[Rfam]
pan motif: a 103-nucleotide RNA sequence from Bacillus solimangrovi.
The family's consensus secondary structure is taken from published work.
Lineage of the source: Bacteria > Bacillati > Bacillota > Caryophanales > Bacillus.

RNA sequence: UGGGCGAUAUCUUAAUAGAAUUGCACCGUUAACCGGAUACUAAGAUUAAUGAAUGAAUAAACAUUCUGCCUUGAUCCUGACAGGUUCGGACUAGGACAGAGGG
Numbered sequence: 001u002g003g004g005c006g007a008u009a010u011c012u013u014a015a016u017a018g019a020a021u022u023g024c025a026c027c028g029u030u031a032a033c034c035g036g037a038u039a040c041u042a043a044g045a046u047u048a049a050u051g052a053a054u055g056a057a058u059a060a061a062c063a064u065u066c067u068g069c070c071u072u073g074a075u076c077c078u079g080a081c082a083g084g085u086u087c088g089g090a091c092u093a094g095g096a097c098a099g100a101g102g103g
Stems, first nucleotide, its partner, number of pairs: 001028003004024005010019002066099003069095003073091001075090003